[Rfam]
RNA sequence: CACUAAGGAACGCAGACUAAAAACCACGUACUGCGGCAACGUCUGCAUAACCCACAUCCCGUGGC
Numbered sequence: 001c002a003c004u005a006a007g008g009a010a011c012g013c014a015g016a017c018u019a020a021a022a023a024c025c026a027c028g029u030a031c032u033g034c035g036g037c038a039a040c041g042u043c044u045g046c047a048u049a050a051c052c053c054a055c056a057u058c059c060c061g062u063g064g065c
Base pairs, nucleotide, nucleotide: 012046013045014044015043016042017041024036025035027033052064053063054062055061